[Rfam]
RNA sequence: CUGCUUUACGCGUUGCUUGGUCAGCGCGAGGCAGAUCAGGCCGCGCCCAUGGGUAGCCAUGAAGUUGAUCGCGGCGGGCGUUGCCAUCUGCGCCGGGAUCA
Numbered sequence: 001c002u003g004c005u006u007u008a009c010g011c012g013u014u015g016c017u018u019g020g021u022c023a024g025c026g027c028g029a030g031g032c033a034g035a036u037c038a039g040g041c042c043g044c045g046c047c048c049a050u051g052g053g054u055a056g057c058c059a060u061g062a063a064g065u066u067g068a069u070c071g072c073g074g075c076g077g078g079c080g081u082u083g084c085c086a087u088c089u090g091c092g093c094c095g096g097g098a099u100c101a
Stems, first nucleotide, its partner, number of pairs: 003058001005056002009028007035050002039047003066101005071093002074091004078084001
Overview
The record is a 101-nucleotide RNA sequence from Alteripontixanthobacter maritimus, which matches "Vibrio RNA AS9" in Rfam. The family's consensus secondary structure was predicted with RNAfold. The literature on the family includes a 2009 paper in Nucleic Acids Res by Liu et al., "Experimental discovery of sRNAs in Vibrio cholerae by direct cloning, 5S/tRNA depletion and parallel sequencing". It is annotated as an antisense RNA. About the family: Identified by direct cloning an parallel sequencing experiments with 5S/tRNA depletion. Confirmed by Northern blot.